[Rfam]
RNA sequence: CAGUCAGGUAGGAUAAUCCUUACCUGUUCCUCCUUUUGGAGGGCAGAUUGUUAGCAUCUCUGCAUAAUCAGGAUUUGCAAGACCUUGAUUGUAAAAUAAA
Numbered sequence: 001c002a003g004u005c006a007g008g009u010a011g012g013a014u015a016a017u018c019c020u021u022a023c024c025u026g027u028u029c030c031u032c033c034u035u036u037u038g039g040a041g042g043g044c045a046g047a048u049u050g051u052u053a054g055c056a057u058c059u060c061u062g063c064a065u066a067a068u069c070a071g072g073a074u075u076u077g078c079a080a081g082a083c084c085u086u087g088a089u090u091g092u093a094a095a096a097u098a099a100a
Base pairs, nucleotide, nucleotide: 024046025045026044028043029042030041031040032039033038064092065091066090067089068088069087070086071085072084